Rfam assigns this 62-nucleotide RNA sequence from Candidatus Erwinia dacicola to the family "DnaX ribosomal frameshifting element". The match comes from Rfam's covariance-model search (39 bits).

[Rfam]
RNA sequence: AUCAGAGGGCGAGUAAGCCAAAAAAGAGUGAGCCGGCGGCGCAGGGGGCGCGGUCGGCAAGC
Numbered sequence: 001a002u003c004a005g006a007g008g009g010c011g012a013g014u015a016a017g018c019c020a021a022a023a024a025a026g027a028g029u030g031a032g033c034c035g036g037c038g039g040c041g042c043a044g045g046g047g048g049c050g051c052g053g054u055c056g057g058c059a060a061g062c
Stems, first nucleotide, its partner, number of pairs: 032058006039051004
By type it is a frameshift element. From the family's description: This family represents a ribosomal frameshifting element found in the mRNA of the dnaX gene in E. coli. The dnaX gene has two encoded products tau and gamma which are produced in a 1:1 ratio. The gamma protein is synthesised due to programmed frameshifting and is shorter than tau. The two products of the dnaX gene are DNA polymerase III subunits. Its family is annotated with translational frameshifting in the Gene Ontology. For this family Rfam cites "Structural probing and mutagenic analysis of the stem-loop required for Escherichia coli dnaX ribosomal frameshifting: programmed efficiency of 50%" (Larsen et al., J Mol Biol, 1997).